[Rfam]
RNA sequence: AGGGAGGCAACGACCUUGAUGAAGGAAGCCGAUAACAAAACUCCAGCCUGACGAACAGGAAUCGGAUGUGAGGCGUGUAUCUUGGGAGAGUCGGCAAAGCUCGAUUAACCCAAAGCUGUUCCGGAAGGGAUGCACGUAGAUCCGGCAGGUGGGGAGGGAAGCACAUGUGU
Numbered sequence: 001a002g003g004g005a006g007g008c009a010a011c012g013a014c015c016u017u018g019a020u021g022a023a024g025g026a027a028g029c030c031g032a033u034a035a036c037a038a039a040a041c042u043c044c045a046g047c048c049u050g051a052c053g054a055a056c057a058g059g060a061a062u063c064g065g066a067u068g069u070g071a072g073g074c075g076u077g078u079a080u081c082u083u084g085g086g087a088g089a090g091u092c093g094g095c096a097a098a099g100c101u102c103g104a105u106u107a108a109c110c111c112a113a114a115g116c117u118g119u120u121c122c123g124g125a126a127g128g129g130a131u132g133c134a135c136g137u138a139g140a141u142c143c144g145g146c147a148g149g150u151g152g153g154g155a156g157g158g159a160a161g162c163a164c165a166u167g168u169g170u
Base pairs, nucleotide, nucleotide: 001016002015003014006011028170029169032166041156042155043154044153046150047149048148049147050146062145063144064143065142066141067140073137074136075135077133078132079131080130081129082128083127084111085110086109090105091104092103093102
A member of the RNA family "Group II catalytic intron D1-D4-3" from Sutterella wadsworthensis, 170 nucleotides long. Its family is annotated with Group II intron splicing in the Gene Ontology. Rfam's curators write: Group II introns are found in rRNA, tRNA and mRNA of organelles in fungi, plants and protists, and also in mRNA in bacteria. The base pairs follow the family's consensus structure.